[Rfam]
RNA sequence: GACCUUCCCGGGAAUGGCUGGGAAGAAGGGCCGAACGGGGUCAACUUG
Numbered sequence: 001g002a003c004c005u006u007c008c009c010g011g012g013a014a015u016g017g018c019u020g021g022g023a024a025g026a027a028g029g030g031c032c033g034a035a036c037g038g039g040g041u042c043a044a045c046u047u048g
Base pairs, nucleotide, nucleotide: 004025005024006023007022008021009020010019011018029042030041031040032039
gut-2 RNA: a 48-nucleotide sequence.